[Rfam]
RNA: Bacterial RNase P class A
Organism: Phreatobacter cathodiphilus
RNA sequence: UCAGCCGGCCGGACGACCGCCGCCGCAUCACCCGAAAGGGCGCGGGGGAGGAAAGUCCGGGCUCCACGGAAACACGGUGCCGGAUAACGUCCGGCGGGGGCGACCCCAGGGACAGUGCCACAGAAAACAGACCGCCGGGGUUCGCUCCGGCAAGGGUGAAAAGGUGGGGUAAGAGCCCACCGCGCGACCGGCAACGGAAGCGGCACGGUAAACCCCACCGGGAGCAAAACCGAAUAGGGACGACAGGGGGAAACCCCGGGCGUGGAUCCGCGCCGUCGUCCGGGUAGGUUGCCAGAGCGUCCGAGCAAUCGGCCGCCUAGAGGAAUGGUCGUCACGCGGGAGCAGUCCCGCCCCACAAAACCCGGCUUACAGGCCGACUGACAUG
Numbered sequence: 001u002c003a004g005c006c007g008g009c010c011g012g013a014c015g016a017c018c019g020c021c022g023c024c025g026c027a028u029c030a031c032c033c034g035a036a037a038g039g040g041c042g043c044g045g046g047g048g049a050g051g052a053a054a055g056u057c058c059g060g061g062c063u064c065c066a067c068g069g070a071a072a073c074a075c076g077g078u079g080c081c082g083g084a085u086a087a088c089g090u091c092c093g094g095c096g097g098g099g100g101c102g103a104c105c106c107c108a109g110g111g112a113c114a115g116u117g118c119c120a121c122a123g124a125a126a127a128c129a130g131a132c133c134g135c136c137g138g139g140g141u142u143c144g145c146u147c148c149g150g151c152a153a154g155g156g157u158g159a160a161a162a163g164g165u166g167g168g169g170u171a172a173g174a175g176c177c178c179a180c181c182g183c184g185c186g187a188c189c190g191g192c193a194a195c196g197g198a199a200g201c202g203g204c205a206c207g208g209u210a211a212a213c214c215c216c217a218c219c220g221g222g223a224g225c226a227a228a229a230c231c232g233a234a235u236a237g238g239g240a241c242g243a244c245a246g247g248g249g250g251a252a253a254c255c256c257c258g259g260g261c262g263u264g265g266a267u268c269c270g271c272g273c274c275g276u277c278g279u280c281c282g283g284g285u286a287g288g289u290u291g292c293c294a295g296a297g298c299g300u301c302c303g304a305g306c307a308a309u310c311g312g313c314c315g316c317c318u319a320g321a322g323g324a325a326u327g328g329u330c331g332u333c334a335c336g337c338g339g340g341a342g343c344a345g346u347c348c349c350g351c352c353c354c355a356c357a358a359a360a361c362c363c364g365g366c367u368u369a370c371a372g373g374c375c376g377a378c379u380g381a382c383a384u385g
Stems, first nucleotide, its partner, number of pairs: 001381004006376005011370001012333007020048002023045004028040001053368003057365005062224004071267001073265001075220005080094005095109001096107004110215002115213002117209003132155002134151007163181006182204001183202003188197003228290004238281006259274005297316003301312004